The record is a 54-nucleotide sequence from Liparis tanakae, which matches "UnaL2 LINE 3' element" in Rfam.

RNA sequence: AUGUAGAAGGAUUGUAAGUCGCUUUGGAUAAAAGCGUCAGCUAAAUAACAUGUA
Numbered sequence: 001a002u003g004u005a006g007a008a009g010g011a012u013u014g015u016a017a018g019u020c021g022c023u024u025u026g027g028a029u030a031a032a033a034g035c036g037u038c039a040g041c042u043a044a045a046u047a048a049c050a051u052g053u054a
Base pairs, nucleotide, nucleotide: 013043014041015040020036021035022034023033024032025031
Record summary: The family's RNA type in Rfam is cis-regulatory element. The base pairs follow the family's consensus structure, which is taken from published work.